Shown here is a 104-nucleotide sequence from Flexivirga aerilata, a member of the family "SAM (S-adenosyl methionine) riboswitch aptamer". Taxonomically the source falls in Flexivirga (Bacteria, Actinomycetota, Micrococcales, Dermacoccaceae). A search with the family's covariance model found it, with a score of 79 bits. SAM-IV is a mRNA element that regulates gene expression via direct sensing of S-adenosylmethionine (SAM or AdoMet). SAM-IV riboswitches share conserved nucleotide positions with the previously described SAM-I riboswitches sequence analysis and molecular recognition experiments suggest that SAM-I and SAM-IV riboswitches share similar ligand binding sites, but have different scaffolds.
[Rfam]
RNA sequence: AGUCACGAGAUCCAACGCGAAGCCCUGGCUGGUUGGACGGCAACCCUCACGCACGUGGCGGGGUGCUCCAGGUGAUGACUAGGCCGUAACGGCAAGCACGGCAG
Numbered sequence: 001a002g003u004c005a006c007g008a009g010a011u012c013c014a015a016c017g018c019g020a021a022g023c024c025c026u027g028g029c030u031g032g033u034u035g036g037a038c039g040g041c042a043a044c045c046c047u048c049a050c051g052c053a054c055g056u057g058g059c060g061g062g063g064u065g066c067u068c069c070a071g072g073u074g075a076u077g078a079c080u081a082g083g084c085c086g087u088a089a090c091g092g093c094a095a096g097c098a099c100g101g102c103a104g
Stems, first nucleotide, its partner, number of pairs: 001080004009038001011037006021030002039067003044063003048058001050057001083093004